[Rfam]
RNA sequence: CAGCAAGCUCGAGGCUGGAAUUCAGGGGCGGUAGCGUU
Dot-bracket structure: .......((.((........)).)).............

A member of the RNA family "JUMPstart RNA" from Aeromonas hydrophila, 38 nucleotides long. By type it is a cis-regulatory element. The sequence is in the family's curated seed alignment. The organism belongs to Aeromonas hydrophila subsp. hydrophila, within Bacteria. Rfam 15.1 lists 288 matches to the family in 230 species.